[Rfam]
RNA sequence: AUCGCUUCUCGGCCUUUUGGCUAAGAUCAAAGUGUAGUAUCUGUUCUUAUCAGCUUAAUCUCUGGUACGGUCUCCAUAGGGGACCCAGAAGAUUAAACUGAUUUUUGGAAAAUGACGGAGUGCUAGGGGCUUGCUCCACCUCUGUCGCGGGUUGACCCGGUAUUGCAGUACCUCCGGGAACGGCCCACCCUAA
Dot-bracket structure: ......(((.((((....)))).))).....................((((((........)))))).(((((((...)))))))............................(((((((.....((((....))))..)))))))..((((((.(((((.............)))))..)))))).......

The family of this 193-nucleotide RNA from Rhodnius prolixus is "U2 spliceosomal RNA".
By type it is a spliceosomal small nuclear RNA.
The match comes from Rfam's covariance-model search (183 bits).